[Rfam]
RNA sequence: CGAGGAGUGGGGGGUCCCUCAGCCCAAAUUGCGAGAGGGCACAGGCCAGGCUGAGGGACCCCACCGGUGCACA
Numbered sequence: 001c002g003a004g005g006a007g008u009g010g011g012g013g014g015u016c017c018c019u020c021a022g023c024c025c026a027a028a029u030u031g032c033g034a035g036a037g038g039g040c041a042c043a044g045g046c047c048a049g050g051c052u053g054a055g056g057g058a059c060c061c062c063a064c065c066g067g068u069g070c071a072c073a
Base pairs, nucleotide, nucleotide: 004070006068008066009065010064011062012061013060014059015058016057017056018055019054020053021052022051023050024049029044030043031042033040